RNA sequence: AAAAAAAAACAGGGGGUCAUCGUAGAAGCGUGCUCGUCGCGACCCCUGCCAGCCCUUUUCAGGGCUGCAAUUUUAAA
Numbered sequence: 001a002a003a004a005a006a007a008a009a010c011a012g013g014g015g016g017u018c019a020u021c022g023u024a025g026a027a028g029c030g031u032g033c034u035c036g037u038c039g040c041g042a043c044c045c046c047u048g049c050c051a052g053c054c055c056u057u058u059u060c061a062g063g064g065c066u067g068c069a070a071u072u073u074u075a076a077a
Stems, first nucleotide, its partner, number of pairs: 013046006023076001025074003028040003050067007
RNA: Mammalian CPEB3 ribozyme